[Rfam]
RNA: tRNA
Organism: Trypanosoma cruzi
RNA sequence: GUCGACAUACCCAAGUGGUUACGGGGUUUGACUUGAAAUCAAAUGCGAUCUCGCGCGCAGGUUCGAACCCUGCUGUCGACG
Numbered sequence: 001g002u003c004g005a006c007a008u009a010c011c012c013a014a015g016u017g018g019u020u021a022c023g024g025g026g027u028u029u030g031a032c033u034u035g036a037a038a039u040c041a042a043a044u045g046c047g048a049u050c051u052c053g054c055g056c057g058c059a060g061g062u063u064c065g066a067a068c069c070c071u072g073c074u075g076u077c078g079a080c081g
Stems, first nucleotide, its partner, number of pairs: 001080007010025003027043005057073005